[Rfam]
RNA sequence: AAAUACUUUUGCGGAGUAGACUGGUCAAAUGGGUCUUAAACAAUCAAUCAUUUCGCCAAUCUACUGCAAAGAAGUAUUC
Numbered sequence: 001a002a003a004u005a006c007u008u009u010u011g012c013g014g015a016g017u018a019g020a021c022u023g024g025u026c027a028a029a030u031g032g033g034u035c036u037u038a039a040a041c042a043a044u045c046a047a048u049c050a051u052u053u054c055g056c057c058a059a060u061c062u063a064c065u066g067c068a069a070a071g072a073a074g075u076a077u078u079c
Stems, first nucleotide, its partner, number of pairs: 002078009013067001015065006022058004027053006

Notes:
mir-5736 microRNA precursor family: a 79-nucleotide RNA from Tetranychus urticae. Lineage of the source: Eukaryota > Bilateria > Trombidiformes > Prostigmata > Tetranychus.